This 92-nucleotide RNA from Rhizobium giardinii belongs to the Rfam family "Rhizobiales sRNA Atu_Ti1". Pairs were carried over by alignment from the consensus structure, which was predicted with WAR. NCBI's taxonomy places the organism under Bacteria, Pseudomonadati, Pseudomonadota, Rhizobiaceae, Rhizobium. It scores 86 bits against the family's covariance model. It is annotated as a small RNA. The literature on the family includes a 2012 paper in RNA Biol by Wilms et al., "Deep sequencing uncovers numerous small RNAs on all four replicons of the plant pathogen Agrobacterium tumefaciens".

RNA sequence: GUCCACGUUGCGGCGGACCAGAACCAUAAGCCGAGCAAGGCAACGGCGGCGGCCGGCCAAUAUCGCGAUGUCAUCAUCACGAGGCCGGCGGC
Numbered sequence: 001g002u003c004c005a006c007g008u009u010g011c012g013g014c015g016g017a018c019c020a021g022a023a024c025c026a027u028a029a030g031c032c033g034a035g036c037a038a039g040g041c042a043a044c045g046g047c048g049g050c051g052g053c054c055g056g057c058c059a060a061u062a063u064c065g066c067g068a069u070g071u072c073a074u075c076a077u078c079a080c081g082a083g084g085c086c087g088g089c090g091g092c
Stems, first nucleotide, its partner, number of pairs: 001018004024046002031039001049092002052089007063082003067078003
Dot-bracket structure: ((((..........)))).....((.....(.......).....))..((.(((((((....(((.(((......))).)))))))))).))